[Rfam]
Nucleotides: 123
Base pairs, nucleotide, nucleotide: 006118007117008116009115010114011113012112013111020055021054022053023052024051025050026049057102058101059100060098061097064096065095066094071088072087073086074085075084076083077082
Number, partner (000 for none) and nucleotide at each position: 001000c002000g003000u004000u005000u006118c007117c008116u009115u010114g011113c012112u013111g014000g015000a016000g017000a018000g019000a020055g021054g022053c023052c024051g025050c026049c027000g028000c029000g030000u031000g032000c033000a034000g035000c036000g037000u038000g039000c040000u041000g042000c043000a044000a045000u046000g047000c048000a049026g050025g051024c052023g053022g054021c055020c056000c057102a058101c059100c060098g061097a062000a063000g064096g065095a066094g067000c068000a069000a070000a071088c072087c073086c074085c075084g076083u077082g078000a079000c080000g081000c082077c083076a084075c085074g086073g087072g088071g089000c090000g091000a092000a093000u094066c095065u096064c097061u098060c099000a100059g101058g102057u103000a104000a105000a106000g107000c108000g109000g110000a111013c112012a113011g114010c115009a116008g117007g118006g119000c120000u121000c122000a123000c

The record is a 123-nucleotide sequence from Ramlibacter tataouinensis, which matches "Glycine riboswitch aptamer" in Rfam. Lineage of the source: Bacteria > Pseudomonadati > Pseudomonadota > Comamonadaceae > Ramlibacter tataouinensis. About the family: This family represents the bacterial glycine riboswitch.